A member of the RNA family "MIR535 microRNA precursor family" from Apostasia shenzhenica, 101 nucleotides long.
Its family is annotated with miRNA-mediated post-transcriptional gene silencing and RISC complex in the Gene Ontology.
The base pairs follow the family's consensus structure, which was predicted with RNAalifold.
The match comes from Rfam's covariance-model search (65 bits).

[Rfam]
RNA sequence: UUGCGUUUUUGACAACGAGAGAGAGCACGCUGGUCGGCGGCUCAAGGGGCAAGGCGGCCAUGACCGUCUACUGGCGUGCUUUUUCUCGCUGUCAUCCGCUU
Dot-bracket structure: .........(((((.((..((.(.((((((((((...................................)))))))))).).))..)).))))).......